[Rfam]
RNA sequence: ACCGGUAAUUUCAUAUGGCCGUAGACAGCAGGUGCGCAUGCGUAAAGUCAACCUACCUGCCGAGGGAAUCGUUUGGAACAAUUGUUUUCAAAGGAAAACCAUCUCUUUGUCUAUGCGCGAAGAGUUUUUUUAUGUAAAA
Numbered sequence: 001a002c003c004g005g006u007a008a009u010u011u012c013a014u015a016u017g018g019c020c021g022u023a024g025a026c027a028g029c030a031g032g033u034g035c036g037c038a039u040g041c042g043u044a045a046a047g048u049c050a051a052c053c054u055a056c057c058u059g060c061c062g063a064g065g066g067a068a069u070c071g072u073u074u075g076g077a078a079c080a081a082u083u084g085u086u087u088u089c090a091a092a093g094g095a096a097a098a099c100c101a102u103c104u105c106u107u108u109g110u111c112u113a114u115g116c117g118c119g120a121a122g123a124g125u126u127u128u129u130u131u132a133u134g135u136a137a138a139a
Base pairs, nucleotide, nucleotide: 028060029059030058031057032056033055034041035040103124104123105122106121107120108119109118110117

Rfam assigns this 139-nucleotide RNA sequence from Anaerotalea alkaliphila to the family "Ribosomal protein L10 leader". Rfam's curators write: This family is a putative r-protein leader autoregulatory structure found in B. subtilis and other low-GC Gram-positive bacteria. It is located in the 5' untranslated regions of mRNAs encoding ribosomal proteins L10 and L12 (rplJ-rplL). A Rho-independent transcription terminator structure that is probably involved in regulation is included at the 3' end. The source organism's lineage runs through Bacteria, Bacillota, Clostridia, Eubacteriales and Anaerotalea. Pairs were carried over by alignment from the consensus structure, which was predicted with CMfinder.